[Rfam]
RNA sequence: GUCAAGAGUAGAAGCGUUCAGUCGCGCAACCGUCCUCCCCGGAGGCGGUGCCGGCGGGUCAUUGCUCUUGGA
Numbered sequence: 001g002u003c004a005a006g007a008g009u010a011g012a013a014g015c016g017u018u019c020a021g022u023c024g025c026g027c028a029a030c031c032g033u034c035c036u037c038c039c040c041g042g043a044g045g046c047g048g049u050g051c052c053g054g055c056g057g058g059u060c061a062u063u064g065c066u067c068u069u070g071g072a
Base pairs, nucleotide, nucleotide: 005068006067007066008065009064010063015057019058021055022054023053024052026051027050